[Rfam]
RNA: Group II catalytic intron D1-D4-3
Nucleotides: 171
Stems, first nucleotide, its partner, number of pairs: 001016006028171001030169002036163001040158006046149005062144005071136003075132007082110004088103004
Number, partner (000 for none) and nucleotide at each position: 001016u002015c003014u004013a005012u006011c007000g008000u009000g010000a011006g012005g013004u014003g015002g016001a017000a018000u019000c020000u021000a022000a023000a024000g025000a026000a027000a028171g029000c030169u031168g032000g033000a034000g035000g036163c037000a038000a039000a040158a041157c042156u043155c044154u045153g046149g047148u048147c049146u050145g051000g052000c053000g054000a055000a056000c057000a058000g059000a060000a061000a062144u063143c064142a065141c066140a067000u068000c069000a070000g071136g072135c073134u074000a075132c076131a077130a078129u079128u080127a081126g082110g083109g084108a085107u086000a087000a088103g089102g090101c091100u092000g093000c094000a095000a096000u097000a098000c099000a100091a101090g102089u103088c104000g105000a106000a107085g108084u109083c110082c111000a112000a113000u114000a115000a116000c117000u118000a119000c120000c121000c122000g123000g124000a125000a126081c127080u128079a129078a130077u131076u132075g133000u134073g135072g136071u137000a138000a139000a140066u141065g142064u143063g144062g145050c146049g147048g148047a149046u150000g151000g152000a153045u154044g155043g156042a157041g158040u159000g160000a161000a162000a163036g164000a165000u166000u167000g168031c169030g170000u171028u